[Rfam]
RNA sequence: AAUCGUUUUCAAGGCAGGGUGUAAAUCCCGACCGGCGGUGAAAGCCCGCAACCCAGUGUAUUUUAUACAAUGGUGGAUUUUGUGAAAUUCAAAAGCCGAUGGUAUAGUCCAGAUGAGAGAAAACGCAU
Numbered sequence: 001a002a003u004c005g006u007u008u009u010c011a012a013g014g015c016a017g018g019g020u021g022u023a024a025a026u027c028c029c030g031a032c033c034g035g036c037g038g039u040g041a042a043a044g045c046c047c048g049c050a051a052c053c054c055a056g057u058g059u060a061u062u063u064u065a066u067a068c069a070a071u072g073g074u075g076g077a078u079u080u081u082g083u084g085a086a087a088u089u090c091a092a093a094a095g096c097c098g099a100u101g102g103u104a105u106a107g108u109c110c111a112g113a114u115g116a117g118a119g120a121a122a123a124c125g126c127a128u
Stems, first nucleotide, its partner, number of pairs: 004125007017029003031108002033098002035049004044096002053073002078094005100111003
The family of this 128-nucleotide sequence from Bombilactobacillus mellifer is "FMN riboswitch aptamer (RFN element)". A search with the family's covariance model found it, with a score of 114 bits.